[Rfam]
RNA sequence: ACCGAUAAUGGCAAACCUGUCGAAAGACAGGGACGCAAAGCUAAAGGGCCUUCCUGAUAAGAUGGCAGCCAGCUACCGAAA
Number, nucleotide and partner (000 for none) at each position: 001a000002c000003c078004g077005a000006u000007a000008a000009u000010g000011g036012c035013a000014a000015a000016c031017c030018u029019g028020u027021c026022g000023a000024a000025a000026g021027a020028c019029a018030g017031g016032g000033a000034c068035g012036c011037a000038a000039a074040g073041c072042u071043a000044a000045a000046g070047g069048g066049c065050c064051u000052u000053c000054c000055u000056g000057a000058u000059a000060a000061g000062a000063u000064g050065g049066c048067a000068g034069c047070c046071a042072g041073c040074u039075a000076c000077c004078g003079a000080a000081a000
RNA: c-di-GMP-I-GGC riboswitch aptamer
Organism: Paenibacillus nasutitermitis